The record is a 170-nucleotide RNA sequence from Paraflavisolibacter caeni, which matches "Group II catalytic intron D1-D4-3" in Rfam.

[Rfam]
RNA sequence: UCCGUCGUGAGGCGGAAUCUGAAGGAAGCCGGCGGCAAAGUGAUGAACUGACGAACAGAAACACAAUACAAGGCUUAUGCUGUGGGCGAGCGGGCAUUGGACUGCGAAGCCCCAUAGUUGGACGUAAACAGCUGUAGUAAAUUGUGCAGUUUAUCACCACAGGACUAUGA
Numbered sequence: 001u002c003c004g005u006c007g008u009g010a011g012g013c014g015g016a017a018u019c020u021g022a023a024g025g026a027a028g029c030c031g032g033c034g035g036c037a038a039a040g041u042g043a044u045g046a047a048c049u050g051a052c053g054a055a056c057a058g059a060a061a062c063a064c065a066a067u068a069c070a071a072g073g074c075u076u077a078u079g080c081u082g083u084g085g086g087c088g089a090g091c092g093g094g095c096a097u098u099g100g101a102c103u104g105c106g107a108a109g110c111c112c113c114a115u116a117g118u119u120g121g122a123c124g125u126a127a128a129c130a131g132c133u134g135u136a137g138u139a140a141a142u143u144g145u146g147c148a149g150u151u152u153a154u155c156a157c158c159a160c161a162g163g164a165c166u167a168u169g170a
Base pairs, nucleotide, nucleotide: 001016002015003014004013005012006011030169031168036162040157041156042155043154044153045152046151047150048149049148050147062146063145064144065143066142067141073138074137075136079132080131081130082129083128084112085111086110087109090105091104092103093102

From the family's description: Group II introns are found in rRNA, tRNA and mRNA of organelles in fungi, plants and protists, and also in mRNA in bacteria.